[Rfam]
RNA sequence: AGCGAUAUGAUGAAAUUAAUUGAGCUGAAUUUCUUUCUUGUUGAAUUCAUAUAUACCUUCAAAGUUCUCUGAUCGCU
Numbered sequence: 001a002g003c004g005a006u007a008u009g010a011u012g013a014a015a016u017u018a019a020u021u022g023a024g025c026u027g028a029a030u031u032u033c034u035u036u037c038u039u040g041u042u043g044a045a046u047u048c049a050u051a052u053a054u055a056c057c058u059u060c061a062a063a064g065u066u067c068u069c070u071g072a073u074c075g076c077u
Stems, first nucleotide, its partner, number of pairs: 001077005
Small nucleolar RNA R160: a 77-nucleotide RNA sequence from Beta vulgaris. Gene Ontology terms of the family: RNA processing and nucleolus. Lineage of the source: Eukaryota > Streptophyta > Euphyllophyta > Caryophyllales > Beta vulgaris. A search with the family's covariance model found it, with a score of 62 bits. About the family: snoR160 is a C/D box small nucleolar RNA, which acts as a methylation guide for 25S ribosomal RNA in plants. snoR160 has been alternatively named snoZ270 in rice. The pairing is the family consensus, mapped onto this sequence.